About this RNA:
The family of this 106-nucleotide sequence from Inhella proteolytica is "TPP riboswitch aptamer (THI element)". Rfam describes the family as follows. Vitamin B(1) in its active form thiamin pyrophosphate (TPP) is an essential coenzyme that is synthesised by coupling of pyrimidine and thiazole moieties in bacteria. The literature on the family includes a 2002 paper in J Biol Chem by Rodionov et al., "Comparative genomics of thiamin biosynthesis in procaryotes. New genes and regulatory mechanisms". Its family is annotated with thiamine pyrophosphate binding in the Gene Ontology.
RNA sequence: GCGUCCGCUCCGGGGUGCCCUGCAUGGGCUGAGAUGGUGCUGUUGAGACCAAACCCGAGAACUUGAUCCGGUUCGUACCGGCGUAAGGAGAGUCGUGAAUCCGCCC
Numbered sequence: 001g002c003g004u005c006c007g008c009u010c011c012g013g014g015g016u017g018c019c020c021u022g023c024a025u026g027g028g029c030u031g032a033g034a035u036g037g038u039g040c041u042g043u044u045g046a047g048a049c050c051a052a053a054c055c056c057g058a059g060a061a062c063u064u065g066a067u068c069c070g071g072u073u074c075g076u077a078c079c080g081g082c083g084u085a086a087g088g089a090g091a092g093u094c095g096u097g098a099a100u101c102c103g104c105c106c
Base pairs, nucleotide, nucleotide: 007093008092009091010090011057012056013055014054016051017029018028019027020026036050037049038048062087063086064085065084068081069080070079071078